Shown here is a 140-nucleotide RNA sequence from Nannospalax galili, a member of the family "Small nucleolar RNA SNORA8". It scores 112 bits against the family's covariance model. Gene Ontology terms of the family: RNA processing and nucleolus. The base pairs follow the family's consensus structure, which was predicted with RNAfold. Rfam's curators write: ACA8 is a member of the H/ACA class of snoRNA that guide the sites of modification of uridines to pseudouridines.
[Rfam]
RNA sequence: UGCAUUGCAUGGAACCUGCGCUCAGCAGUUCAUGCCUGCUGGUAUGUUCAAAGAACAGUGUGAUAGAAAUUCACUAUCCGGCAUUGUUGGCUUUCUUGGCUGUGGUGCCUAUUAAAUCUGGUAUUUCUAUUGCUACAGUU
Numbered sequence: 001u002g003c004a005u006u007g008c009a010u011g012g013a014a015c016c017u018g019c020g021c022u023c024a025g026c027a028g029u030u031c032a033u034g035c036c037u038g039c040u041g042g043u044a045u046g047u048u049c050a051a052a053g054a055a056c057a058g059u060g061u062g063a064u065a066g067a068a069a070u071u072c073a074c075u076a077u078c079c080g081g082c083a084u085u086g087u088u089g090g091c092u093u094u095c096u097u098g099g100c101u102g103u104g105g106u107g108c109c110u111a112u113u114a115a116a117u118c119u120g121g122u123a124u125u126u127c128u129a130u131u132g133c134u135a136c137a138g139u140u
Stems, first nucleotide, its partner, number of pairs: 002061006016053002018047003023042001024040005064129007071121003080109005